[Rfam]
RNA: Lysine riboswitch aptamer
Organism: Clostridium thermobutyricum
RNA sequence: CGAAGAGGUAGAGGCGCGAAUCUUAAGAGUACUAUAGUUUUUAUAAGCAAAUUGGAACUAUAGGAAAGGAAGAUUCGCCGAAGGAUAUAAGAAAUUGCUUUAAUCUUAUAAUCCUGGGGUUAUGCAGAAUAUGCAUAAGACUGUCACAAGAAAUUGUGUUGGGCUAUCAUUCUA
Number, nucleotide and partner (000 for none) at each position: 001c000002g000003a000004a000005g000006a000007g168008g167009u166010a165011g164012a000013g000014g000015c000016g078017c077018g076019a075020a074021u073022c072023u071024u070025a000026a000027g000028a000029g000030u000031a000032c063033u062034a061035u060036a059037g058038u057039u056040u000041u000042u000043a000044u000045a000046a000047g000048c000049a000050a000051a000052u000053u000054g000055g000056a039057a038058c037059u036060a035061u034062a033063g032064g000065a000066a000067a000068g000069g000070a024071a023072g022073a021074u020075u019076c018077g017078c016079c000080g000081a000082a115083g114084g113085a112086u110087a109088u108089a107090a106091g105092a104093a000094a000095u000096u000097g000098c000099u000100u000101u000102a000103a000104u092105c091106u090107u089108a088109u087110a086111a000112u085113c084114c083115u082116g142117g141118g000119g000120u138121u137122a136123u135124g134125c133126a132127g000128a000129a000130u000131a000132u126133g125134c124135a123136u122137a121138a120139g000140a000141c117142u116143g000144u000145c158146a157147c156148a155149a154150g000151a000152a000153a000154u149155u148156g147157u146158g145159u000160u000161g000162g000163g000164c011165u010166a009167u008168c007169a000170u000171u000172c000173u000174a000